[Rfam]
RNA sequence: GCAGCCGGAUGAUGAGGUCAAGGUGAACGUGACGGUGCGCCGGUCGACGGCGCUGCUGGGCGGCACCUACGCGGUGCGAGGAAGCGGCCUCAGAUGGUCGACGGGGUGAUGUGGUUCCGACCGGCGGC
Number, nucleotide and partner (000 for none) at each position: 001g000002c000003a000004g125005c124006c123007g122008g121009a000010u000011g000012a000013u000014g000015a000016g000017g000018u000019c000020a000021a000022g000023g000024u000025g000026a000027a000028c000029g000030u000031g000032a000033c000034g000035g000036u000037g000038c000039g000040c000041c000042g000043g000044u000045c000046g000047a000048c000049g000050g000051c000052g000053c000054u000055g000056c000057u000058g000059g000060g000061c000062g000063g000064c000065a000066c000067c000068u000069a000070c000071g000072c000073g000074g000075u000076g000077c000078g000079a000080g000081g000082a000083a000084g000085c000086g000087g000088c000089c000090u000091c000092a000093g000094a000095u000096g000097g000098u000099c000100g000101a000102c000103g000104g000105g000106g000107u000108g000109a000110u000111g000112u000113g000114g000115u000116u000117c000118c000119g000120a000121c008122c007123g006124g005125c004126g000127g000128c000

Shown here is a 128-nucleotide RNA, a member of the family "Small nucleolar RNA Z206". Rfam classes the family as a C/D-box small nucleolar RNA. Gene Ontology terms of the family: nucleolus and RNA processing.